[Rfam]
RNA sequence: UGGUUUUUUUAGGUUUUGAUUUUUGUAAACGUUGGAUGAGAAAAUCAAAACCUAAA
Numbered sequence: 001u002g003g004u005u006u007u008u009u010u011a012g013g014u015u016u017u018g019a020u021u022u023u024u025g026u027a028a029a030c031g032u033u034g035g036a037u038g039a040g041a042a043a044a045u046c047a048a049a050a051c052c053u054a055a056a
Base pairs, nucleotide, nucleotide: 008056009055010054011053012052013051014050015049016048017047018046019045020044021043022042023041024040
The family of this 56-nucleotide RNA sequence from Hippoglossus hippoglossus is "mir-737 microRNA precursor family".
The family's consensus secondary structure was predicted with RNAalifold.
Rfam links the family to the GO terms miRNA-mediated post-transcriptional gene silencing and RISC complex.
NCBI's taxonomy places the organism under Eukaryota, Deuterostomia, Teleostomi, Pleuronectiformes, Hippoglossus.